[Rfam]
RNA sequence: CAACAGCGUCCGCGGUAUUCCAAAUCUGUUUAAAAAACACACGAUUUUGCCUGGACGCUCGCCCAACAUGACCAAUACUGGAACUUACUGGUGUGUGGCAUCUCCCCCCAAGUGCCCCGCCAGCCAAGGUACCGUGGACCGCGUACCUUGAUUUACUCCUAAUGGUCUUAACCCGGAUUCAUCCCCCAGAAUCCGG
Number, nucleotide and partner (000 for none) at each position: 001c000002a000003a000004c000005a000006g000007c000008g000009u000010c000011c000012g000013c000014g000015g000016u000017a000018u000019u000020c000021c000022a000023a000024a000025u000026c000027u000028g000029u000030u000031u000032a000033a000034a000035a000036a000037a000038c000039a000040c000041a000042c164043g163044a000045u000046u000047u000048u000049g000050c000051c000052u000053g000054g000055a000056c000057g000058c000059u000060c000061g000062c000063c000064c000065a000066a000067c000068a000069u000070g000071a000072c000073c000074a000075a000076u000077a000078c000079u000080g000081g000082a000083a000084c000085u000086u000087a000088c123089u122090g121091g000092u119093g118094u000095g116096u000097g000098g000099c114100a113101u112102c000103u000104c000105c000106c000107c000108c000109c000110a000111a000112g101113u100114g099115c000116c095117c000118c093119g092120c000121c090122a089123g088124c000125c150126a149127a148128g147129g146130u145131a144132c143133c141134g000135u000136g000137g000138a000139c000140c000141g133142c000143g132144u131145a130146c129147c128148u127149u126150g125151a000152u000153u000154u000155a000156c000157u000158c000159c000160u000161a000162a000163u043164g042165g000166u000167c000168u000169u000170a000171a000172c000173c196174c195175g194176g193177a000178u191179u190180c189181a000182u000183c000184c000185c000186c000187c000188a000189g180190a179191a178192u000193c176194c175195g174196g173
RgsA sRNA: a 196-nucleotide RNA sequence from Ectopseudomonas mendocina. This small RNA (sRNA) was computationally identified in the genome of the opportunistic pathogen Pseudomonas aeruginosa and its expression verified by northern blot analysis. P16 sRNA appears to be conserved across several Pseudomonas species and Azotobacter vinelandii. In these species it is consistently located downstream of a predicted TatD deoxyribonuclease gene. P16 has a predicted Rho independent terminator at the 3' end but the function of P16 is unknown. The base pairs follow the family's consensus structure, which was predicted with RNAalifold. Taxonomically the source falls in Ectopseudomonas mendocina (Bacteria, Gammaproteobacteria, Pseudomonadales, Ectopseudomonas). The sequence is in the family's curated seed alignment.